A member of the RNA family "Small nucleolar RNA U54", 83 nucleotides long.
U54 is a C/D box small nucleolar RNA, which acts as a methylation guide for 18S ribosomal RNA in plants.
Gene Ontology terms of the family: nucleolus and RNA processing.
The literature on the family includes a 2003 paper in Nucleic Acids Res by Chen et al., "The high diversity of snoRNAs in plants: identification and comparative study of 120 snoRNA genes from Oryza sativa".
Rfam classes the family as a C/D-box small nucleolar RNA.
The family's consensus secondary structure was predicted with PFOLD.
RNA sequence: GGCUCUGUGAUAUUCUGCCUUUGUUGCAGUAUACGCUAUUCUGAUUCAAAUUAUGAGCAGAUAUUUUAUUACUAUUGAGAGCU
Numbered sequence: 001g002g003c004u005c006u007g008u009g010a011u012a013u014u015c016u017g018c019c020u021u022u023g024u025u026g027c028a029g030u031a032u033a034c035g036c037u038a039u040u041c042u043g044a045u046u047c048a049a050a051u052u053a054u055g056a057g058c059a060g061a062u063a064u065u066u067u068a069u070u071a072c073u074a075u076u077g078a079g080a081g082c083u
Base pairs, nucleotide, nucleotide: 001083002082003081004080005079